[Rfam]
RNA sequence: UACGCUUGGUUGAAACAAGAUUUAUCGUGAGAAGUCAGCAGAAGUCAUAGUAGUUUCCGCUGGAAAUGAAGGAC
Numbered sequence: 001u002a003c004g005c006u007u008g009g010u011u012g013a014a015a016c017a018a019g020a021u022u023u024a025u026c027g028u029g030a031g032a033a034g035u036c037a038g039c040a041g042a043a044g045u046c047a048u049a050g051u052a053g054u055u056u057c058c059g060c061u062g063g064a065a066a067u068g069a070a071g072g073a074c
Stems, first nucleotide, its partner, number of pairs: 002021001005019004010014001035042002044074003053067006
Background: The family of this 74-nucleotide RNA sequence from Terrilactibacillus tamarindi is "Group II catalytic intron D1-D4-1". Rfam describes the family as follows. Group II introns are found in rRNA, tRNA and mRNA of organelles in fungi, plants and protists, and also in mRNA in bacteria. The organism belongs to Terrilactibacillus, within Bacteria.